RNA sequence: CCUGCAGGCAGAAGUGGGGCUGACAGGGCAGAGGGUUGCGCCCCCUCACCAUCCCUUCUGCCUGCAG
Numbered sequence: 001c002c003u004g005c006a007g008g009c010a011g012a013a014g015u016g017g018g019g020c021u022g023a024c025a026g027g028g029c030a031g032a033g034g035g036u037u038g039c040g041c042c043c044c045c046u047c048a049c050c051a052u053c054c055c056u057u058c059u060g061c062c063u064g065c066a067g
Stems, first nucleotide, its partner, number of pairs: 002067013016054003019050001021048003026043004
A member of the RNA family "mir-6511 microRNA precursor family" from Homo sapiens, 67 nucleotides long.
The family has 3 seed sequences and 23 matches in Rfam 15.1.
The base pairs follow the family's consensus structure, which was predicted with RNAalifold.
Gene Ontology terms of the family: RISC complex and miRNA-mediated post-transcriptional gene silencing.
NCBI's taxonomy places the organism under Eukaryota, Sarcopterygii, Amniota, Theria, Homo.